[Rfam]
RNA sequence: GCUUGUUCUCAGGGCGGGGUGAAAGUCCCCACCGGCGGUGAUCCGGCCUUGACCGGAAAGCCCGCGAGCGCUCCUCCGGGUGGAGGAGGUCAGCAGACCCGGUGCGACUCCGGGGCCGACGGUGACAGUCCGGAUGAAAGAGAAUGAGG
Numbered sequence: 001g002c003u004u005g006u007u008c009u010c011a012g013g014g015c016g017g018g019g020u021g022a023a024a025g026u027c028c029c030c031a032c033c034g035g036c037g038g039u040g041a042u043c044c045g046g047c048c049u050u051g052a053c054c055g056g057a058a059a060g061c062c063c064g065c066g067a068g069c070g071c072u073c074c075u076c077c078g079g080g081u082g083g084a085g086g087a088g089g090u091c092a093g094c095a096g097a098c099c100c101g102g103u104g105c106g107a108c109u110c111c112g113g114g115g116c117c118g119a120c121g122g123u124g125a126c127a128g129u130c131c132g133g134a135u136g137a138a139a140g141a142g143a144a145u146g147a148g149g
Stems, first nucleotide, its partner, number of pairs: 003147008017029003031129002033118002035065004060116002068094002098114005120132003

Shown here is a 149-nucleotide RNA sequence from Pseudodesulfovibrio alkaliphilus, a member of the family "FMN riboswitch aptamer (RFN element)". Taxonomically the source falls in Pseudodesulfovibrio (Bacteria, Pseudomonadati, Desulfovibrionia, Desulfovibrionaceae).